The family of this 138-nucleotide sequence from Tupaia belangeri is "Small nucleolar RNA SNORA61".
RNA sequence: ACCCUCUGACUUCCUUCCCCUUUGGAACUGAACACUGGUCUUGGUGGUAGUUAAAACGAGGUAGUAAAAAGUAAUACUGAAGCUGGCCAUAUGGUGGUGUAGCCUGGUAUACAACAUGUGGGCUGGUUUUGAACAGGC
Numbered sequence: 001a002c003c004c005u006c007u008g009a010c011u012u013c014c015u016u017c018c019c020c021u022u023u024g025g026a027a028c029u030g031a032a033c034a035c036u037g038g039u040c041u042u043g044g045u046g047g048u049a050g051u052u053a054a055a056a057c058g059a060g061g062u063a064g065u066a067a068a069a070a071g072u073a074a075u076a077c078u079g080a081a082g083c084u085g086g087c088c089a090u091a092u093g094g095u096g097g098u099g100u101a102g103c104c105u106g107g108u109a110u111a112c113a114a115c116a117u118g119u120g121g122g123c124u125g126g127u128u129u130u131g132a133a134c135a136g137g138c
Stems, first nucleotide, its partner, number of pairs: 003061004019047002022044002025040002028037001083126006098116003
Notes: NCBI's taxonomy places the organism under Eukaryota, Tetrapoda, Boreoeutheria, Euarchontoglires, Tupaia. Rfam's curators put it in the seed alignment. From the family's description: ACA61 is a member of the H/ACA class of snoRNA that guide the sites of modification of uridines to pseudouridines.